[Rfam]
RNA sequence: UAUUCUGAUAAGACACCCAUUUGGGUAUAACCCAAAUAUUGACCUGCCCCAUUAACAAUUUUAUGUAUAUUGUGCAUUACUGCUAGCCAACAUGAAUAUUAUAUA
Number, nucleotide and partner (000 for none) at each position: 001u000002a000003u095004u094005c000006u092007g091008a000009u000010a000011a000012g000013a000014c082015a081016c000017c000018c000019a000020u000021u035022u034023g033024g032025g031026u030027a000028u000029a000030a026031c025032c024033c023034a022035a021036a059037u058038a000039u055040u054041g053042a052043c000044c000045u000046g000047c000048c000049c000050c000051a000052u042053u041054a040055a039056c000057a000058a037059u036060u000061u000062u000063a077064u076065g075066u074067a073068u000069a000070u000071u000072g000073u067074g066075c065076a064077u063078u000079a000080c000081u015082g014083c000084u000085a000086g000087c000088c000089a000090a000091c007092a006093u000094g004095a003096a000097u000098a000099u000100u000101a000102u000103a000104u000105a000

The family of this 105-nucleotide RNA from Pongo abelii is "Mitochondrial DNA control region secondary structure A". Rfam classes the family as an antisense RNA. Taxonomically the source falls in Pongo (Eukaryota, Eumetazoa, Sarcopterygii, Primates). The match comes from Rfam's covariance-model search (68 bits).